[Rfam]
RNA sequence: GUAGGCUAUGGGGACAUGAGACCCGUCACUGUGGGGGGCAAGAUCGUGGGCUCGCUGUGUGCCAUCGCUGGGGUCCUCACCAUCGCCCUGCCUGUGCCCGUCAUUGUCUCCAAC
Numbered sequence: 001g002u003a004g005g006c007u008a009u010g011g012g013g014a015c016a017u018g019a020g021a022c023c024c025g026u027c028a029c030u031g032u033g034g035g036g037g038g039c040a041a042g043a044u045c046g047u048g049g050g051c052u053c054g055c056u057g058u059g060u061g062c063c064a065u066c067g068c069u070g071g072g073g074u075c076c077u078c079a080c081c082a083u084c085g086c087c088c089u090g091c092c093u094g095u096g097c098c099c100g101u102c103a104u105u106g107u108c109u110c111c112a113a114c
Stems, first nucleotide, its partner, number of pairs: 001114002004111002008107004013102003018097001020095001037077002040074001049063003